[Rfam]
RNA sequence: AAAUGAACACGCGGGGGCUCCCACGAUCACCGGGGGCUGAGAUGGCGACGGGACGGUCGCCGACCGCCUGAACCUGUCCGGAUAAUGCCGGCGUAGGGAGUCGCAUCAUGGGAACA
Number, nucleotide and partner (000 for none) at each position: 001a000002a000003a000004u000005g000006a000007a000008c000009a101010c100011g067012c066013g065014g064015g000016g000017g037018c036019u035020c034021c033022c000023a000024c000025g000026a000027u000028c000029a000030c000031c000032g000033g021034g020035g019036g018037c017038u000039g000040a000041g000042a000043u000044g061045g060046c059047g058048a057049c000050g000051g000052g000053a000054c000055g000056g000057u048058c047059g046060c045061c044062g000063a000064c014065c013066g012067c011068c000069u000070g000071a000072a000073c097074c096075u095076g094077u000078c091079c090080g089081g088082a000083u000084a000085a000086u000087g000088c081089c080090g079091g078092c000093g000094u076095a075096g074097g073098g000099a000100g010101u009102c000103g000104c000105a000106u000107c000108a000109u000110g000111g000112g000113a000114a000115c000116a000